[Rfam]
RNA sequence: AGGAUUCCUACAGGAGCGACCUGAGAUCACAUGAGGGCAUUAGAUUCAGAAGCAACCCCGUCCCUCGAUUCUGGGUCUUUUCUUUUUUAUUUGCGUUUCGUGUGUUCUCAGGUCGCCCCUGCCGGGAUUUU
Dot-bracket structure: ......((..((((.((((...((((.(((((((((...........................................................))))))))).))))...)))).))))..))......
Notes: The family of this 131-nucleotide RNA sequence from Turnera subulata is "MIR398 microRNA precursor family". The organism belongs to Turnera, within Eukaryota. The literature on the family includes a 2004 paper in Mol Cell by Jones-Rhoades and Bartel, "Computational identification of plant microRNAs and their targets, including a stress-induced miRNA". It scores 80 bits against the family's covariance model.